[Rfam]
RNA sequence: GAUAUCAAAACCACACUUUCGCUCCCUGACCUAUACAGGCCUCUGCUAUGGGGGUGAUGGCCAGUCCUGGUGUCAGUGAUU
Numbered sequence: 001g002a003u004a005u006c007a008a009a010a011c012c013a014c015a016c017u018u019u020c021g022c023u024c025c026c027u028g029a030c031c032u033a034u035a036c037a038g039g040c041c042u043c044u045g046c047u048a049u050g051g052g053g054g055u056g057a058u059g060g061c062c063a064g065u066c067c068u069g070g071u072g073u074c075a076g077u078g079a080u081u
Stems, first nucleotide, its partner, number of pairs: 001081003006076001015071003021065003024060002027057001029055004036050002038047003
Dot-bracket structure: (((..(........(((...(((((.(.((((...(((((....))).)).)))).).))..)))...)))....)..)))
Rfam assigns this 81-nucleotide RNA from Muntiacus reevesi to the family "Small nucleolar RNA SNORD86". It is annotated as a C/D-box small nucleolar RNA. A search with the family's covariance model found it, with a score of 65 bits. The family has 6 seed sequences and 274 matches in Rfam 15.1. The family's consensus secondary structure was predicted with RNAalifold. For this family Rfam cites "U86, a novel snoRNA with an unprecedented gene organization in yeast" (Filippini et al., Biochem Biophys Res Commun, 2001). From the family's description: U86 belongs to the C/D family of snoRNAs. Taxonomically the source falls in Muntiacus (Eukaryota, Metazoa, Amniota, Artiodactyla).